[Rfam]
RNA sequence: ACCACUAAGCCAUCUCUCCAGCCACAAAAAUCUUUUUUUUAAAAAAUUAAUUUAUGGGCUGGAGAGAUGGCUUAGCGGU
Numbered sequence: 001a002c003c004a005c006u007a008a009g010c011c012a013u014c015u016c017u018c019c020a021g022c023c024a025c026a027a028a029a030a031u032c033u034u035u036u037u038u039u040u041a042a043a044a045a046a047u048u049a050a051u052u053u054a055u056g057g058g059c060u061g062g063a064g065a066g067a068u069g070g071c072u073u074a075g076c077g078g079u
Stems, first nucleotide, its partner, number of pairs: 002078002005075019